Small nucleolar RNA R64/Z200 family: an 89-nucleotide RNA from Dendrobium catenatum. The literature on the family includes a 2002 paper in Mol Cell Biol by Galardi et al., "Purified box C/D snoRNPs are able to reproduce site-specific 2'-O-methylation of target RNA in vitro". Pairs were carried over by alignment from the consensus structure, which was predicted with PFOLD.

RNA sequence: GUUUUGCUGGAUGAUAUGAAAUACACAUGUCAGGCUCAGAGGCGUUUUGUGCGCCGAUGAGAAGAAAAUUUCAUUGUCUUGAGCAAAAU
Numbered sequence: 001g002u003u004u005u006g007c008u009g010g011a012u013g014a015u016a017u018g019a020a021a022u023a024c025a026c027a028u029g030u031c032a033g034g035c036u037c038a039g040a041g042g043c044g045u046u047u048u049g050u051g052c053g054c055c056g057a058u059g060a061g062a063a064g065a066a067a068a069u070u071u072c073a074u075u076g077u078c079u080u081g082a083g084c085a086a087a088a089u
Stems, first nucleotide, its partner, number of pairs: 001089007041055004
Dot-bracket structure: (((((((.................................((((.......))))...........................)))))))